[Rfam]
RNA: T-box leader
RNA sequence: AUAAAGGUAAUGAUUGGAAUAAGUAGUUUCUUAUCUCCCUGUAGCAGAGAGCUGGUGGUGGUGAAAAUCAGUAUAAAGAUAAGGGCGAAUUACCUCCAUGAACUUUCUUUGCGAACGGAUAGUAGUAAAGAACGGACGAACCGUUAUUCGAAUGAAGUGGAAGAGAAAUCUUCAAUAAGGGUGGUACCGCGUUAACCACGUCCCUUUU
Number, nucleotide and partner (000 for none) at each position: 001a000002u000003a000004a000005a000006g000007g103008u102009a000010a000011u000012g000013a000014u000015u098016g097017g096018a095019a000020u000021a000022a000023g000024u000025a000026g086027u085028u084029u000030c083031u082032u081033a000034u000035c000036u000037c000038c000039c000040u075041g074042u073043a000044g000045c000046a000047g000048a000049g000050a000051g072052c071053u070054g069055g068056u067057g000058g000059u000060g000061g000062u000063g000064a000065a000066a000067a056068u055069c054070a053071g052072u051073a042074u041075a040076a000077a000078g000079a000080u000081a032082a031083g030084g028085g027086c026087g000088a000089a000090u000091u000092a000093c000094c000095u018096c017097c016098a015099u000100g000101a000102a008103c007104u000105u000106u131107c130108u129109u128110u127111g126112c125113g000114a000115a000116c000117g000118g000119a000120u000121a000122g000123u000124a000125g112126u111127a110128a109129a108130g107131a106132a000133c143134g142135g141136a000137c000138g000139a000140a000141c135142c134143g133144u000145u000146a000147u000148u000149c000150g000151a000152a000153u000154g000155a000156a000157g000158u000159g000160g173161a172162a171163g170164a169165g000166a000167a000168a000169u164170c163171u162172u161173c160174a000175a000176u000177a000178a205179g204180g203181g202182u000183g000184g000185u000186a000187c000188c000189g201190c200191g199192u198193u000194a000195a000196c000197c000198a192199c191200g190201u189202c181203c180204c179205u178206u000207u000208u000